A member of the RNA family "antisense RNA of dnaA mRNA" from Photobacterium ganghwense, 81 nucleotides long. On this family, see Dadzie et al., PLoS One 2013: "Identification and characterization of a cis-encoded antisense RNA associated with the replication process of Salmonella enterica serovar Typhi". A search with the family's covariance model found it, with a score of 62 bits. Gene Ontology term of the family: regulation of mRNA stability.
Nucleotides: 081
Base pairs, nucleotide, nucleotide: 005042006041007040009038011036012035016032017031018030020029052077053076054075056074061072062071063070
Number, partner (000 for none) and nucleotide at each position: 001000u002000u003000u004000g005042g006041c007040g008000u009038u010000c011036g012035g013000c014000u015000u016032g017031c018030g019000a020029u021000c022000c023000g024000c025000g026000a027000u028000c029020g030018c031017g032016u033000u034000a035012c036011c037000c038009a039000c040007c041006g042005c043000a044000u045000g046000c047000a048000a049000c050000a051000a052077g053076u054075g055000g056074g057000u058000u059000u060000u061072a062071c063070c064000c065000a066000g067000g068000c069000c070063g071062g072061u073000u074056c075054c076053g077052c078000c079000g080000u081000a